[Rfam]
RNA sequence: UGAUGACAAAUCUCCGGAAUCUCUGUAUUUCGUUGAUGAAUACUUUGAACCCUUUAUCUGAUGACUGCUAUUUAUUACU
Numbered sequence: 001u002g003a004u005g006a007c008a009a010a011u012c013u014c015c016g017g018a019a020u021c022u023c024u025g026u027a028u029u030u031c032g033u034u035g036a037u038g039a040a041u042a043c044u045u046u047g048a049a050c051c052c053u054u055u056a057u058c059u060g061a062u063g064a065c066u067g068c069u070a071u072u073u074a075u076u077a078c079u
Base pairs, nucleotide, nucleotide: 002079004077005076006075
The record is a 79-nucleotide RNA sequence from Amphiprion percula, which matches "Small nucleolar RNA MBII-202" in Rfam. The organism belongs to Amphiprion, within Eukaryota. The family's consensus secondary structure was predicted with PFOLD. On this family, see Huttenhofer et al., EMBO J 2001: "RNomics: an experimental approach that identifies 201 candidates for novel, small, non-messenger RNAs in mouse".